[Rfam]
RNA sequence: GGCAACUUGGCCGAGCGGUCUAAGGCGCCAGACUCAAGCGCAAGCUUCAUCCGUCCCAGCGGAUGAGUAUUCUGGUCUCGAAAGAGGCGUGAGUUCGAAUCUCACAGUUGUCA
Number, nucleotide and partner (000 for none) at each position: 001g112002g111003c110004a109005a108006c107007u106008u000009g000010g026011c025012c024013g000014a000015g000016c000017g000018g000019u000020c000021u000022a000023a000024g012025g011026c010027g000028c075029c074030a073031g072032a071033c000034u000035c000036a000037a000038g000039c000040g000041c000042a000043a000044g000045c000046u000047u000048c000049a000050u000051c000052c000053g000054u000055c000056c000057c000058a000059g000060c000061g000062g000063a000064u000065g000066a000067g000068u000069a000070u000071u032072c031073u030074g029075g028076u000077c000078u000079c000080g000081a000082a000083a000084g000085a000086g000087g000088c000089g105090u104091g103092a102093g101094u000095u000096c000097g000098a000099a000100u000101c093102u092103c091104a090105c089106a007107g006108u005109u004110g003111u002112c001113a000